ZMP/ZTP riboswitch aptamer (pfl RNA motif): an 81-nucleotide sequence from Pleomorphomonas diazotrophica. Lineage of the source: Bacteria > Alphaproteobacteria > Hyphomicrobiales > Pleomorphomonadaceae > Pleomorphomonas. A search with the family's covariance model found it, with a score of 56 bits.

[Rfam]
RNA sequence: GCGUAGCUGCGUGACUGGCGGGACAGGAUGGGCAACCAUCGGGGAGCGCAGCGUUCGCUGCCGUCCGCCUGGGCUCCACCA
Numbered sequence: 001g002c003g004u005a006g007c008u009g010c011g012u013g014a015c016u017g018g019c020g021g022g023a024c025a026g027g028a029u030g031g032g033c034a035a036c037c038a039u040c041g042g043g044g045a046g047c048g049c050a051g052c053g054u055u056c057g058c059u060g061c062c063g064u065c066c067g068c069c070u071g072g073g074c075u076c077c078a079c080c081a
Base pairs, nucleotide, nucleotide: 003055006052007051008050009049010048011047012046015043016042017069018068019067020066021065028039029038030037031036060074061073062072